This 108-nucleotide RNA from Piliocolobus tephrosceles belongs to the Rfam family "Mitochondrial DNA control region secondary structure A".
The family has 53 seed sequences and 795 matches in Rfam 15.1.
The family's consensus secondary structure is taken from published work.
Taxonomically the source falls in Piliocolobus (Eukaryota, Bilateria, Dipnotetrapodomorpha, Boreoeutheria).
The literature on the family includes a 2008 paper in Mol Biol Evol by Pereira et al., "Evidence for variable selective pressures at a large secondary structure of the human mitochondrial DNA control region".
[Rfam]
RNA sequence: GCAUUCUAUAGGGGGUACAAUUCUUAAAGGGUAGCUUAAGUAUUAAUUUAAUUUCACGUGCCCUUAUGUAAUUCGUGCAUUACUGCUAGUCACCACGAAUAUUAUAUA
Numbered sequence: 001g002c003a004u005u006c007u008a009u010a011g012g013g014g015g016u017a018c019a020a021u022u023c024u025u026a027a028a029g030g031g032u033a034g035c036u037u038a039a040g041u042a043u044u045a046a047u048u049u050a051a052u053u054u055c056a057c058g059u060g061c062c063c064u065u066a067u068g069u070a071a072u073u074c075g076u077g078c079a080u081u082a083c084u085g086c087u088a089g090u091c092a093c094c095a096c097g098a099a100u101a102u103u104a105u106a107u108a
Base pairs, nucleotide, nucleotide: 005099007097009095011094012093013091014090018085019084025039027037028036029035040061041060044056046054066080067079068078069077070076